[Rfam]
RNA sequence: UGCCCGGUGAUGAUACCCAUCCUUGCUCCCCGUGCCUAGGGGCUAUGGGCGACACCAUGGCUGCCCUCGGGUUGGGCCGGUUGGGCUCUUGCCUGGGGGCUGAGGGCA
Numbered sequence: 001u002g003c004c005c006g007g008u009g010a011u012g013a014u015a016c017c018c019a020u021c022c023u024u025g026c027u028c029c030c031c032g033u034g035c036c037u038a039g040g041g042g043c044u045a046u047g048g049g050c051g052a053c054a055c056c057a058u059g060g061c062u063g064c065c066c067u068c069g070g071g072u073u074g075g076g077c078c079g080g081u082u083g084g085g086c087u088c089u090u091g092c093c094u095g096g097g098g099g100c101u102g103a104g105g106g107c108a
Base pairs, nucleotide, nucleotide: 001108002107003106004105005104